[Rfam]
RNA sequence: UUAAAUCAAAUAUGUAUGGAGUUGGAACUUUUGCCUAAGUUUGUCGCUAGGGGCGCUGUUCUAACUGCAUAUAAAUUUAAGUUA
Numbered sequence: 001u002u003a004a005a006u007c008a009a010a011u012a013u014g015u016a017u018g019g020a021g022u023u024g025g026a027a028c029u030u031u032u033g034c035c036u037a038a039g040u041u042u043g044u045c046g047c048u049a050g051g052g053g054c055g056c057u058g059u060u061c062u063a064a065c066u067g068c069a070u071a072u073a074a075a076u077u078u079a080a081g082u083u084a
Stems, first nucleotide, its partner, number of pairs: 008078004013073004018068001020066009034052003039047002
Rfam assigns this 84-nucleotide sequence from Bombyx mori to the family "mir-2807 microRNA precursor family".
Rfam links the family to the GO terms RISC complex and miRNA-mediated post-transcriptional gene silencing.
The organism belongs to Bombyx, within Eukaryota.
Pairs were carried over by alignment from the consensus structure, which was predicted with RNAalifold.
For this family Rfam cites "Novel microRNAs in silkworm (Bombyx mori)" (Cai et al., Funct Integr Genomics, 2010).